The family of this 122-nucleotide RNA from Dinghuibacter silviterrae is "SAM riboswitch aptamer (S box leader)". NCBI's taxonomy places the organism under Bacteria, Pseudomonadati, Bacteroidota, Chitinophagia, Dinghuibacter. The family's consensus secondary structure is taken from published work.
[Rfam]
RNA sequence: CUCUUAUCAAGAAAGGCUGAGGGAAAUGGCCCUUUGAAGCCUUGACAACCUGCUACCUGCGCUCCGCGCGGGGAAGUAAGGUGCCAACUCCAUCCCGAUGGAAAAAUCGGGACAGAUAAGUC
Numbered sequence: 001c002u003c004u005u006a007u008c009a010a011g012a013a014a015g016g017c018u019g020a021g022g023g024a025a026a027u028g029g030c031c032c033u034u035u036g037a038a039g040c041c042u043u044g045a046c047a048a049c050c051u052g053c054u055a056c057c058u059g060c061g062c063u064c065c066g067c068g069c070g071g072g073g074a075a076g077u078a079a080g081g082u083g084c085c086a087a088c089u090c091c092a093u094c095c096c097g098a099u100g101g102a103a104a105a106a107u108c109g110g111g112a113c114a115g116a117u118a119a120g121u122c
Stems, first nucleotide, its partner, number of pairs: 003120006013043005021032003026093004044085001046083002049081002051078004089114001094111006